The family of this 61-nucleotide RNA sequence is "Glutamine riboswitch aptamer (glnA leader)". The family's consensus secondary structure is taken from published work.
RNA sequence: UACGUUCAUCCCCUAACAUAGGGGACGCAAGUACUCUACGAAUGAGAGGAAGGAACGGGAA
Numbered sequence: 001u002a003c004g005u006u007c008a009u010c011c012c013c014u015a016a017c018a019u020a021g022g023g024g025a026c027g028c029a030a031g032u033a034c035u036c037u038a039c040g041a042a043u044g045a046g047a048g049g050a051a052g053g054a055a056c057g058g059g060a061a
Base pairs, nucleotide, nucleotide: 003057004056005055006054007053009025010024011023012022013021028058034048035047036046